[Rfam]
mir-317 microRNA precursor family: a 92-nucleotide sequence from Anopheles stephensi. A reference for the family is Stark et al. (2007), "Systematic discovery and characterization of fly microRNAs using 12 Drosophila genomes", Genome Res. The family has 25 seed sequences and 153 matches in Rfam 15.1.
RNA sequence: ACCCUCGGCCACUGGGAUACUCCUUGUGCUCGCUGUGUAUUUUGAUUCAAACUAGUGAACACAUCUGGUGGUAUCUCAGUGGCCGGGCUGAG
Numbered sequence: 001a002c003c004c005u006c007g008g009c010c011a012c013u014g015g016g017a018u019a020c021u022c023c024u025u026g027u028g029c030u031c032g033c034u035g036u037g038u039a040u041u042u043u044g045a046u047u048c049a050a051a052c053u054a055g056u057g058a059a060c061a062c063a064u065c066u067g068g069u070g071g072u073a074u075c076u077c078a079g080u081g082g083c084c085g086g087g088c089u090g091a092g
Base pairs, nucleotide, nucleotide: 008083009082010081011080012079015077016075017074019072020071022068023067025063026062028060030058031057
Dot-bracket structure: .......(((((..(((.((.((.((.(.((.........................)).).))...))..)).)).).))))).........
A search with the family's covariance model found it, with a score of 80 bits. Rfam links the family to the GO terms miRNA-mediated post-transcriptional gene silencing and RISC complex.